[Rfam]
RNA sequence: UGUUGGUAGCAUUCAAAUCAACAUAGCAAGUUAAAAUAAGGGAUUAUCCGUCCUCAGCUUUUUAAGCAAGCACUGUCUCGGUGCUUUUUUA
Numbered sequence: 001u002g003u004u005g006g007u008a009g010c011a012u013u014c015a016a017a018u019c020a021a022c023a024u025a026g027c028a029a030g031u032u033a034a035a036a037u038a039a040g041g042g043a044u045u046a047u048c049c050g051u052c053c054u055c056a057g058c059u060u061u062u063u064a065a066g067c068a069a070g071c072a073c074u075g076u077c078u079c080g081g082u083g084c085u086u087u088u089u090u091a
Stems, first nucleotide, its partner, number of pairs: 001036001003034003011024002040049002057067001059065002069085007
RNA: Trans-activating crRNA